[Rfam]
RNA sequence: GCACAUUGAAAAUUACCUUUGGCAUUCGUUACCUUGGGUAAGAUAAUUGUGCCUACAGCAAUUUGGUACGUAUAGCUUAUUGCCAACUCCACGUUAUUGUGCAAUGAAACCCAUGUACCAACACUG
Numbered sequence: 001g002c003a004c005a006u007u008g009a010a011a012a013u014u015a016c017c018u019u020u021g022g023c024a025u026u027c028g029u030u031a032c033c034u035u036g037g038g039u040a041a042g043a044u045a046a047u048u049g050u051g052c053c054u055a056c057a058g059c060a061a062u063u064u065g066g067u068a069c070g071u072a073u074a075g076c077u078u079a080u081u082g083c084c085a086a087c088u089c090c091a092c093g094u095u096a097u098u099g100u101g102c103a104a105u106g107a108a109a110c111c112c113a114u115g116u117a118c119c120a121a122c123a124c125u126g
Stems, first nucleotide, its partner, number of pairs: 005050002008047001010044001013041004021033002024030001065119001067117005077107005085098002
Dot-bracket structure: ....((.(.(..((((....((.(.....).))....))))..)..).))..............(.(((((.....(((((...((..........))....))))).....))))).).......
Rfam assigns this 126-nucleotide RNA from Triplophysa rosa to the family "Small nucleolar RNA ACA64". Rfam links the family to the GO terms nucleolus and RNA processing. The literature on the family includes a 2006 paper in RNA by Schattner et al., "A computational screen for mammalian pseudouridylation guide H/ACA RNAs". Rfam 15.1 lists 9,537 matches to the family in 620 species. The source organism's lineage runs through Eukaryota, Deuterostomia, Osteoglossocephalai, Nemacheilidae and Triplophysa.